[Rfam]
RNA sequence: GGGGAGCAUCUAAAUGAAAAGAUGCUGCCUGAUACAAUCUUCCUAUAGAGAAAAACUGUUGUUUCCUGCUUACAGCGCUUGAGCAAGUACUGUAGGUCUCGAAUAGACAGUGACAAAA
Numbered sequence: 001g002g003g004g005a006g007c008a009u010c011u012a013a014a015u016g017a018a019a020a021g022a023u024g025c026u027g028c029c030u031g032a033u034a035c036a037a038u039c040u041u042c043c044u045a046u047a048g049a050g051a052a053a054a055a056c057u058g059u060u061g062u063u064u065c066c067u068g069c070u071u072a073c074a075g076c077g078c079u080u081g082a083g084c085a086a087g088u089a090c091u092g093u094a095g096g097u098c099u100c101g102a103a104u105a106g107a108c109a110g111u112g113a114c115a116a117a118a
Stems, first nucleotide, its partner, number of pairs: 001030003005026007055111003068097008077088003
The family of this 118-nucleotide sequence from Cajanus cajan is "Small nucleolar RNA snoR104". The organism belongs to Cajanus, within Eukaryota. Pairs were carried over by alignment from the consensus structure, which was predicted with WAR.